[Rfam]
RNA sequence: GGAGGUGCGUGUCAGUGAUGGCACAGCUGAACAUCGAUCGCUUGUAUUCUUUAUAGCAGAUCUGCUCAGUCACGUGCAGUCACAAAGGUCGAUUCAGUCACCAAUGGACCUGCCGAUGUCUUCGUCGCACGGUUAGUCAUCCAAUGGUUACUUGAACGUCCGCAAUUUUCCAAAUUUGGGGUUCACCGGAUGGGUCAUUUUCAAUUUAAAACACCUCCAAAAUGGGCACUGCAGAUUGGCAGUUUGCCAUUUUUUGA
Numbered sequence: 001g002g003a004g005g006u007g008c009g010u011g012u013c014a015g016u017g018a019u020g021g022c023a024c025a026g027c028u029g030a031a032c033a034u035c036g037a038u039c040g041c042u043u044g045u046a047u048u049c050u051u052u053a054u055a056g057c058a059g060a061u062c063u064g065c066u067c068a069g070u071c072a073c074g075u076g077c078a079g080u081c082a083c084a085a086a087g088g089u090c091g092a093u094u095c096a097g098u099c100a101c102c103a104a105u106g107g108a109c110c111u112g113c114c115g116a117u118g119u120c121u122u123c124g125u126c127g128c129a130c131g132g133u134u135a136g137u138c139a140u141c142c143a144a145u146g147g148u149u150a151c152u153u154g155a156a157c158g159u160c161c162g163c164a165a166u167u168u169u170c171c172a173a174a175u176u177u178g179g180g181g182u183u184c185a186c187c188g189g190a191u192g193g194g195u196c197a198u199u200u201u202c203a204a205u206u207u208a209a210a211a212c213a214c215c216u217c218c219a220a221a222a223u224g225g226g227c228a229c230u231g232c233a234g235a236u237u238g239g240c241a242g243u244u245u246g247c248c249a250u251u252u253u254u255u256g257a
Base pairs, nucleotide, nucleotide: 001218002217003216004215005214006213007212015083016082017081018080019079027069028068029067032064033063036062037061038060039059040057041056042055225248226247227246228243229242230241231240232239

Shown here is a 257-nucleotide RNA from Psylliodes chrysocephalus, a member of the family "Arthropod 7SK RNA". It scores 128 bits against the family's covariance model. On this family, see Gruber et al., Mol Biol Evol 2008: "Arthropod 7SK RNA". Its Rfam clan is "7SK clan".